This 81-nucleotide RNA from Stegodyphus mimosarum belongs to the Rfam family "mir-263 microRNA precursor family". Its family is annotated with RISC complex and miRNA-mediated post-transcriptional gene silencing in the Gene Ontology. Lineage of the source: Eukaryota > Eumetazoa > Arthropoda > Chelicerata > Stegodyphus. On this family, see Li et al., BMC Genomics 2009: "Direct sequencing and expression analysis of a large number of miRNAs in Aedes aegypti and a multi-species survey of novel mosquito miRNAs".
RNA sequence: GAUUUGCGUCUAAUGGCACUGGAAGAAUUCACGGAUUAUUUAAGAUUUCCGUGGUUUCUCUGGUGCUAUAAGAAGCAGUCA
Numbered sequence: 001g002a003u004u005u006g007c008g009u010c011u012a013a014u015g016g017c018a019c020u021g022g023a024a025g026a027a028u029u030c031a032c033g034g035a036u037u038a039u040u041u042a043a044g045a046u047u048u049c050c051g052u053g054g055u056u057u058c059u060c061u062g063g064u065g066c067u068a069u070a071a072g073a074a075g076c077a078g079u080c081a
Stems, first nucleotide, its partner, number of pairs: 004078004009073002013069006020062003025057003029054006